[Rfam]
RNA sequence: GGGCAAGAUAGGUGAAGUUAGCUAACCAGCAAGCUGGCUAUCAAACUUCACAAGCCUUAUUCGCACCUACGGUGCUCAACGGUAUCUUGCUUUUUGAGAUC
Numbered sequence: 001g002g003g004c005a006a007g008a009u010a011g012g013u014g015a016a017g018u019u020a021g022c023u024a025a026c027c028a029g030c031a032a033g034c035u036g037g038c039u040a041u042c043a044a045a046c047u048u049c050a051c052a053a054g055c056c057u058u059a060u061u062c063g064c065a066c067c068u069a070c071g072g073u074g075c076u077c078a079a080c081g082g083u084a085u086c087u088u089g090c091u092u093u094u095u096g097a098g099a100u101c
Base pairs, nucleotide, nucleotide: 001092002091003090004089005088006087007086008085009084012051013050014049015048016047017046019044021042024039026037027036028035029034055082056081063075064074065073066072067071
This 101-nucleotide RNA sequence from Legionella pneumophila belongs to the Rfam family "traJ-II RNA". By type it is a cis-regulatory element. The family has 47 seed sequences and 174 matches in Rfam 15.1. The base pairs follow the family's consensus structure, which is taken from published work.